Na+ riboswitch aptamer (DUF1646): a 66-nucleotide RNA from Desulfofarcimen acetoxidans.
The literature on the family includes a 2022 paper in Nat Chem Biol by White et al., "Na(+) riboswitches regulate genes for diverse physiological processes in bacteria".
[Rfam]
RNA sequence: GGCUGGGCGAGUUAAUUUGUAUUUAUUCGCUUUCACAAGUGAUUUACGACUUCUGGGUGGGAAGCC
Dot-bracket structure: ...((((((((..............))))))..))............(.(((((.....))))).)
Taxonomically the source falls in Desulfofarcimen acetoxidans (Bacteria, Bacillati, Eubacteriales, Desulfofarcimen). The sequence is in the family's curated seed alignment.